[Rfam]
RNA: Potassium channel RNA editing signal
RNA sequence: UCCAGUUACGGAGACAUGGUGCCCAAGACGAUCGCCGGGAAGAUUUUCGGUUCCAUCUGCUCGCUGAGCGGGGUUCUGGUAAUAGCUCUGCCCGUGCCUGUCAUCGUGUCCAAC
Numbered sequence: 001u002c003c004a005g006u007u008a009c010g011g012a013g014a015c016a017u018g019g020u021g022c023c024c025a026a027g028a029c030g031a032u033c034g035c036c037g038g039g040a041a042g043a044u045u046u047u048c049g050g051u052u053c054c055a056u057c058u059g060c061u062c063g064c065u066g067a068g069c070g071g072g073g074u075u076c077u078g079g080u081a082a083u084a085g086c087u088c089u090g091c092c093c094g095u096g097c098c099u100g101u102c103a104u105c106g107u108g109u110c111c112a113a114c
Stems, first nucleotide, its partner, number of pairs: 001113001005110001007108005013102004018097001021095002037077004050062001